[Rfam]
RNA sequence: GGUUUUUGCGAGACCCCACCUCCUCCCGGGGUUUGUAGCAAAGGCGGCAAUACCGAUCCUCCUCCCCGGUGUUGUCGCAAUUU
Number, nucleotide and partner (000 for none) at each position: 001g000002g000003u000004u000005u000006u000007u037008g036009c035010g000011a034012g033013a032014c031015c030016c029017c028018a000019c000020c000021u000022c000023c000024u000025c000026c000027c000028g017029g016030g015031g014032u013033u012034u011035g009036u008037a007038g000039c000040a000041a000042a000043g000044g000045c077046g076047g075048c074049a073050a072051u071052a070053c069054c068055g000056a000057u000058c000059c000060u000061c000062c000063u000064c000065c000066c000067c000068g054069g053070u052071g051072u050073u049074g048075u047076c046077g045078c000079a000080a000081u000082u000083u000
RNA: Conserved CCUCCUCCC motif stress-induced RNA 1